[Rfam]
RNA sequence: GCGCGGGCCGCGCCAACCGGACCCGGCGGCAAGGAGAACAGGGAAGGUUUUUCCGGUUUCUCUCCCUGGCCAACGAAACGGCAGACGAGCUCCUGUCCCGCCCGGCCC
Numbered sequence: 001g002c003g004c005g006g007g008c009c010g011c012g013c014c015a016a017c018c019g020g021a022c023c024c025g026g027c028g029g030c031a032a033g034g035a036g037a038a039c040a041g042g043g044a045a046g047g048u049u050u051u052u053c054c055g056g057u058u059u060c061u062c063u064c065c066c067u068g069g070c071c072a073a074c075g076a077a078a079c080g081g082c083a084g085a086c087g088a089g090c091u092c093c094u095g096u097c098c099c100g101c102c103c104g105g106c107c108c
Stems, first nucleotide, its partner, number of pairs: 006107004012022001014020001025102003028098002033093004039068006046062001069082003
Rfam assigns this 108-nucleotide RNA sequence from Aquamicrobium sp. LC103 to the family "Rhizobiales sRNA Atu_At1". The organism belongs to Aquamicrobium, within Bacteria.